The record is a 67-nucleotide sequence from Nitritalea halalkaliphila, which matches "Fluoride riboswitch aptamer (crcB RNA motif)" in Rfam. The family's consensus secondary structure is taken from published work. The match comes from Rfam's covariance-model search (59 bits).
[Rfam]
RNA sequence: UUUGUUUCAGGUGAUGGGGUUCCACCUAAAAAAAACCGCCGUAUCGGCUGAUGACUCCUACACAGUA
Numbered sequence: 001u002u003u004g005u006u007u008c009a010g011g012u013g014a015u016g017g018g019g020u021u022c023c024a025c026c027u028a029a030a031a032a033a034a035a036c037c038g039c040c041g042u043a044u045c046g047g048c049u050g051a052u053g054a055c056u057c058c059u060a061c062a063c064a065g066u067a
Stems, first nucleotide, its partner, number of pairs: 010026004016058006038048003